The record is an 86-nucleotide sequence from Leptobrachium leishanense, which matches "mir-130 microRNA precursor family" in Rfam.
NCBI's taxonomy places the organism under Eukaryota, Opisthokonta, Euteleostomi, Tetrapoda, Leptobrachium.
Rfam links the family to the GO terms miRNA-mediated post-transcriptional gene silencing and RISC complex.
RNA sequence: UACUUGUCCAGAGCCCUUUUUAUGUUGUACUACUAGUGGCCACGCACAAAAAGCAGUGCAAUGUUAAAAGGGCAUUGGCCAGUGAA
Dot-bracket structure: (.(.((.((((.((((((((..(((((((((.......................)))))))))..)))))))).)))).))..).)
Numbered sequence: 001u002a003c004u005u006g007u008c009c010a011g012a013g014c015c016c017u018u019u020u021u022a023u024g025u026u027g028u029a030c031u032a033c034u035a036g037u038g039g040c041c042a043c044g045c046a047c048a049a050a051a052a053g054c055a056g057u058g059c060a061a062u063g064u065u066a067a068a069a070g071g072g073c074a075u076u077g078g079c080c081a082g083u084g085a086a
Stems, first nucleotide, its partner, number of pairs: 001086001003084001005081002008078004013073008023063009